[Rfam]
RNA sequence: GUAGGAUACGGCGACAUGCAUCCGGUCACCAUUGGGGGGAAGAUCGUGGGUUCCCUGUGCGCCAUCGCCGGGGUGUUAACCAUAGCCCUGCCAGUUCCUGUCAUAGUGUCCAAC
Numbered sequence: 001g002u003a004g005g006a007u008a009c010g011g012c013g014a015c016a017u018g019c020a021u022c023c024g025g026u027c028a029c030c031a032u033u034g035g036g037g038g039g040a041a042g043a044u045c046g047u048g049g050g051u052u053c054c055c056u057g058u059g060c061g062c063c064a065u066c067g068c069c070g071g072g073g074u075g076u077u078a079a080c081c082a083u084a085g086c087c088c089u090g091c092c093a094g095u096u097c098c099u100g101u102c103a104u105a106g107u108g109u110c111c112a113a114c
Stems, first nucleotide, its partner, number of pairs: 001114002004111002007108003011104001013102004018097001020095002037077002040074001049063003